[Rfam]
Nucleotides: 124
Base pairs, nucleotide, nucleotide: 011031012030013029014028015027016026017025018024019023034071035070036069037068038067040057041056042055043054044053045052083121084120085119086118088117089115090114092111093110094109095108096107
Number, partner (000 for none) and nucleotide at each position: 001000a002000u003000a004000a005000a006000a007000a008000a009000a010000c011031c012030u013029g014028c015027a016026g017025a018024a019023a020000u021000a022000a023019u024018u025017u026016c027015u028014g029013c030012a031011g032000g033000u034071c035070c036069c037068u038067u039000u040057g041056u042055u043054u044053u045052c046000u047000u048000g049000u050000u051000a052045g053044a054043a055042a056041a057040c058000a059000a060000a061000a062000a063000g064000g065000c066000a067038a068037a069036g070035g071034g072000a073000g074000a075000g076000g077000a078000g079000a080000a081000a082000c083121c084120g085119g086118a087000g088117g089115a090114g091000a092111a093110c094109u095108u096107a097000u098000g099000g100000g101000g102000a103000a104000g105000u106000g107096u108095a109094a110093g111092u112000u113000u114090c115089u116000u117088c118086u119085c120084c121083g122000a123000g124000u
The record is a 124-nucleotide RNA from Ornithinibacillus halophilus, which matches "ylbH leader" in Rfam. The family's RNA type in Rfam is cis-regulatory leader. Gene Ontology term of the family: regulation of gene expression. The source organism's lineage runs through Bacteria, Bacillati, Bacilli, Caryophanales and Ornithinibacillus. A search with the family's covariance model found it, with a score of 86 bits.